[Rfam]
RNA sequence: UAUAUGUUAUGAUGGUAUGAUACUAAACCCCUCACGGGGAGGAUUGUGCCUGAUAUUCAUAUA
Numbered sequence: 001u002a003u004a005u006g007u008u009a010u011g012a013u014g015g016u017a018u019g020a021u022a023c024u025a026a027a028c029c030c031c032u033c034a035c036g037g038g039g040a041g042g043a044u045u046g047u048g049c050c051u052g053a054u055a056u057u058c059a060u061a062u063a
Stems, first nucleotide, its partner, number of pairs: 001063005014050008023041001029039003
The family of this 63-nucleotide RNA sequence from Mytilus edulis is "Selenocysteine insertion sequence 1". Pairs were carried over by alignment from the consensus structure, which is taken from published work. The incorporation of selenocysteine into a protein sequence is directed by an in-frame UGA codon (usually a stop codon) within the coding region of the mRNA. Selenoprotein mRNAs contain a conserved secondary structure in the 3' UTR that is required for the distinction of UGA stop from UGA selenocysteine. Rfam links the family to the GO term selenocysteine incorporation. Rfam classes the family as a cis-regulatory element. The source organism's lineage runs through Eukaryota, Eumetazoa, Bivalvia, Mytiloidea and Mytilus. The match comes from Rfam's covariance-model search (35 bits).